[Rfam]
RNA sequence: UGUGUCCCACCUUGCAGACAAGUCCCUAUCGAUAUUGCCUCUGCUUUUAUUAGCGCUAACAGAGUAGUGCAAUAUUGCUUAUAGGGUCUUGACUGUGAGGAUGC
Numbered sequence: 001u002g003u004g005u006c007c008c009a010c011c012u013u014g015c016a017g018a019c020a021a022g023u024c025c026c027u028a029u030c031g032a033u034a035u036u037g038c039c040u041c042u043g044c045u046u047u048u049a050u051u052a053g054c055g056c057u058a059a060c061a062g063a064g065u066a067g068u069g070c071a072a073u074a075u076u077g078c079u080u081a082u083a084g085g086g087u088c089u090u091g092a093c094u095g096u097g098a099g100g101a102u103g104c
Stems, first nucleotide, its partner, number of pairs: 020090003024086006030077009041067004045062001
Rfam assigns this 104-nucleotide RNA from Nothobranchius furzeri to the family "mir-454 microRNA precursor family". A search with the family's covariance model found it, with a score of 76 bits. Its family is annotated with RISC complex and miRNA-mediated post-transcriptional gene silencing in the Gene Ontology. Rfam 15.1 lists 696 matches to the family in 601 species.